[Rfam]
RNA: RT-14 RNA
RNA sequence: CUCCGCCUAUGUGCCAGAAGCGAGUAUCUUACGGGAUAUCCGACAGAGCUUUAGGCAAAGGAAUCAGGAUCCAUGUUGCGCAUUGUUCAAUGCCAGCAAAAAACAUAAACAGAUGGGCUGCGGUAAGUAAGGAGAUUUUCUCCUGAAAAUCGCAGUCUAUC
Numbered sequence: 001c002u003c004c005g006c007c008u009a010u011g012u013g014c015c016a017g018a019a020g021c022g023a024g025u026a027u028c029u030u031a032c033g034g035g036a037u038a039u040c041c042g043a044c045a046g047a048g049c050u051u052u053a054g055g056c057a058a059a060g061g062a063a064u065c066a067g068g069a070u071c072c073a074u075g076u077u078g079c080g081c082a083u084u085g086u087u088c089a090a091u092g093c094c095a096g097c098a099a100a101a102a103a104c105a106u107a108a109a110c111a112g113a114u115g116g117g118c119u120g121c122g123g124u125a126a127g128u129a130a131g132g133a134g135a136u137u138u139u140c141u142c143c144u145g146a147a148a149a150u151c152g153c154a155g156u157c158u159a160u161c
Stems, first nucleotide, its partner, number of pairs: 003055001007054003013049002022041001024039006075097004112161013131143005